[Rfam]
RNA sequence: AUGAAUGUGGAAAUGCAGGCAUCCCUUCUACAUACUGAUUUAAUUUUCCUUGGAUUUGUAUCCAGUACUGAGGGAGUGGAUUGUAUGGUAGUUCUAUUUUUAA
Numbered sequence: 001a002u003g004a005a006u007g008u009g010g011a012a013a014u015g016c017a018g019g020c021a022u023c024c025c026u027u028c029u030a031c032a033u034a035c036u037g038a039u040u041u042a043a044u045u046u047u048c049c050u051u052g053g054a055u056u057u058g059u060a061u062c063c064a065g066u067a068c069u070g071a072g073g074g075a076g077u078g079g080a081u082u083g084u085a086u087g088g089u090a091g092u093u094c095u096a097u098u099u100u101u102a103a
Stems, first nucleotide, its partner, number of pairs: 002102004007097006014090003019084003022080003025076005031070002033067005042056005
Rfam assigns this 103-nucleotide sequence from Macaca mulatta to the family "mir-6130 microRNA precursor family".
NCBI's taxonomy places the organism under Eukaryota, Sarcopterygii, Mammalia, Simiiformes, Macaca.